Hairpin ribozyme 1 from viruses-like metatranscriptomes: a 131-nucleotide RNA.

RNA sequence: GUCCUGUCCUCUAGGAUGAAGCACUAGGCGAGGUUGCGGAAAGACUCCGCUGGCUUCAGGGUGUGUGCCUAGAGAGAAGGAUUGCCGGUGAAACAUGCUCGCCCGCCGAAGCGAGUAGCACAUUACCCGGU
Numbered sequence: 001g002u003c004c005u006g007u008c009c010u011c012u013a014g015g016a017u018g019a020a021g022c023a024c025u026a027g028g029c030g031a032g033g034u035u036g037c038g039g040a041a042a043g044a045c046u047c048c049g050c051u052g053g054c055u056u057c058a059g060g061g062u063g064u065g066u067g068c069c070u071a072g073a074g075a076g077a078a079g080g081a082u083u084g085c086c087g088g089u090g091a092a093a094c095a096u097g098c099u100c101g102c103c104c105g106c107c108g109a110a111g112c113g114a115g116u117a118g119c120a121c122a123u124u125a126c127c128c129g130g131u
Base pairs, nucleotide, nucleotide: 001082002081003080004079009074010073011072012071013070014069015068021064022063023062024061084131085130086129087128088127096117097116098115099114100113101112102111
Source information:
For this family Rfam cites "Identification of over 200-fold more hairpin ribozymes than previously known in diverse circular RNAs" (Weinberg et al., Nucleic Acids Res, 2021).